[Rfam]
RNA sequence: UUCUUAUCCAGAGAGGUGGAGGGACAGGGCCCUAUGAAACCCGGCAACCAGUGUAGAUCGCGGGUGCCAAUUCCCACAAGUGCAGUAGCAUUUGUAAGAUGAGGA
Numbered sequence: 001u002u003c004u005u006a007u008c009c010a011g012a013g014a015g016g017u018g019g020a021g022g023g024a025c026a027g028g029g030c031c032c033u034a035u036g037a038a039a040c041c042c043g044g045c046a047a048c049c050a051g052u053g054u055a056g057a058u059c060g061c062g063g064g065u066g067c068c069a070a071u072u073c074c075c076a077c078a079a080g081u082g083c084a085g086u087a088g089c090a091u092u093u094g095u096a097a098g099a100u101g102a103g104g105a
Base pairs, nucleotide, nucleotide: 001105002104003103004102005101006100007099008098013042015041016040017039021032022031023030027075028074029073043068044067045066046065048064049063051061052060053059072097077094078093079092080091081090082089